[Rfam]
RNA sequence: GGGCUUGUGAUGAUUCAGGUCCGAAAGAAUCUUAGCGGAUUUCUAUGGCAAUUCUGUCGUCAUUGCUUGCUUAAUGUUGUUACACACACUGAAGCCU
Number, nucleotide and partner (000 for none) at each position: 001g097002g096003g095004c094005u093006u000007g000008u000009g000010a000011u000012g000013a000014u000015u000016c000017a000018g000019g000020u000021c000022c000023g000024a000025a000026a000027g000028a000029a000030u000031c000032u000033u000034a000035g000036c000037g000038g000039a000040u000041u000042u000043c000044u000045a000046u000047g000048g000049c000050a000051a000052u000053u000054c000055u000056g000057u000058c000059g000060u000061c000062a000063u000064u000065g000066c000067u000068u000069g000070c000071u000072u000073a000074a000075u000076g000077u000078u000079g000080u000081u000082a000083c000084a000085c000086a000087c000088a000089c000090u000091g000092a000093a005094g004095c003096c002097u001
Rfam assigns this 97-nucleotide RNA sequence from Leersia perrieri to the family "Small nucleolar RNA R11/Z151". Its family is annotated with RNA processing and nucleolus in the Gene Ontology. Rfam classes the family as a C/D-box small nucleolar RNA. On this family, see Barneche et al., J Mol Biol 2001: "Identification of 66 box C/D snoRNAs in Arabidopsis thaliana: extensive gene duplications generated multiple isoforms predicting new ribosomal RNA 2'-O-methylation sites". The base pairs follow the family's consensus structure, which was predicted with PFOLD.